[Rfam]
Rfam assigns this 71-nucleotide sequence from Eucalyptus grandis to the family "Small nucleolar RNA snoR60". The family has 10 seed sequences and 1,133 matches in Rfam 15.1. The match comes from Rfam's covariance-model search (67 bits). For this family Rfam cites "Fibrillarin genes encode both a conserved nucleolar protein and a novel small nucleolar RNA involved in ribosomal RNA methylation in Arabidopsis thaliana" (Barneche et al., J Biol Chem, 2000). The base pairs follow the family's consensus structure, which was predicted with PFOLD. The family's RNA type in Rfam is C/D-box small nucleolar RNA. NCBI's taxonomy places the organism under Eukaryota, Viridiplantae, Streptophytina, Myrtales, Eucalyptus.
RNA sequence: GUGCAUUUGAUCAAAUACUCGGAUUCCCCUUCAAGAUAGUUUGGGUGAUGCAUUCUCGAGUUUUUGAUGCA
Dot-bracket structure: .((((..............................................................))))
Numbered sequence: 001g002u003g004c005a006u007u008u009g010a011u012c013a014a015a016u017a018c019u020c021g022g023a024u025u026c027c028c029c030u031u032c033a034a035g036a037u038a039g040u041u042u043g044g045g046u047g048a049u050g051c052a053u054u055c056u057c058g059a060g061u062u063u064u065u066g067a068u069g070c071a
Stems, first nucleotide, its partner, number of pairs: 002071004